RNA sequence: GUCACCGCCGGACGGAACGGGUCGCGAGGGUUGGGGAGCCUGACGACCGAUCCGCCUCCGAGACAGCCACAGGUCUUAGGGAGCCCAAGGCAGUCGCUCCGGCGAAGGAG
Numbered sequence: 001g002u003c004a005c006c007g008c009c010g011g012a013c014g015g016a017a018c019g020g021g022u023c024g025c026g027a028g029g030g031u032u033g034g035g036g037a038g039c040c041u042g043a044c045g046a047c048c049g050a051u052c053c054g055c056c057u058c059c060g061a062g063a064c065a066g067c068c069a070c071a072g073g074u075c076u077u078a079g080g081g082a083g084c085c086c087a088a089g090g091c092a093g094u095c096g097c098u099c100c101g102g103c104g105a106a107g108g109a110g
Base pairs, nucleotide, nucleotide: 006104007103008102009101010100011099012098013060014059015058016057018054019053020052021051022050023049024048028041029040030039031038032037062095063094064093066091067090072085073084074083
Dot-bracket structure: .....(((((((((((.(((((((...(((((....)))))......)))))))..)))).(((.((....(((........)))....)).)))..)))))))......